BsrG: a 267-nucleotide RNA sequence from Domibacillus epiphyticus. Its family is annotated with autolysis and toxin activity in the Gene Ontology. Lineage of the source: Bacteria > Bacillati > Bacilli > Bacillaceae > Domibacillus. A search with the family's covariance model found it, with a score of 59 bits. Rfam classes the family as a small RNA.
RNA sequence: CAAUAGUAUAGGUUUUUCUCAAGGGUGGUCGGCACAUGCAUUCCUCUUGUAAAAGUGGGAGGAGGUGGUGCCGUUUGACAGUAUUUCAGUCCCUUAUGUUCGCAAUAGCGUUCGCAGGAUUGGUUGUUUCUAUUCUGUCAUUUCAUAAAAAAGACUAAAACCGCCCUUGAGUUUGGCCGCUCGGCGGUUUUAGUUUAGCUGCUGUGUCGAUCCCGUUAAGGAACCCUGCUAUUGUUGGACCGUUUCGAUCUAUUUAAAUCGAAGCGG
Numbered sequence: 001c002a003a004u005a006g007u008a009u010a011g012g013u014u015u016u017u018c019u020c021a022a023g024g025g026u027g028g029u030c031g032g033c034a035c036a037u038g039c040a041u042u043c044c045u046c047u048u049g050u051a052a053a054a055g056u057g058g059g060a061g062g063a064g065g066u067g068g069u070g071c072c073g074u075u076u077g078a079c080a081g082u083a084u085u086u087c088a089g090u091c092c093c094u095u096a097u098g099u100u101c102g103c104a105a106u107a108g109c110g111u112u113c114g115c116a117g118g119a120u121u122g123g124u125u126g127u128u129u130c131u132a133u134u135c136u137g138u139c140a141u142u143u144c145a146u147a148a149a150a151a152a153g154a155c156u157a158a159a160a161c162c163g164c165c166c167u168u169g170a171g172u173u174u175g176g177c178c179g180c181u182c183g184g185c186g187g188u189u190u191u192a193g194u195u196u197a198g199c200u201g202c203u204g205u206g207u208c209g210a211u212c213c214c215g216u217u218a219a220g221g222a223a224c225c226c227u228g229c230u231a232u233u234g235u236u237g238g239a240c241c242g243u244u245u246c247g248a249u250c251u252a253u254u255u256a257a258a259u260c261g262a263a264g265c266g267g
Stems, first nucleotide, its partner, number of pairs: 001234005007228002011224001016210002018171008027161001029159001035067002041064010077139005083133001090104001114130001116128001182201002211223001213221002240267010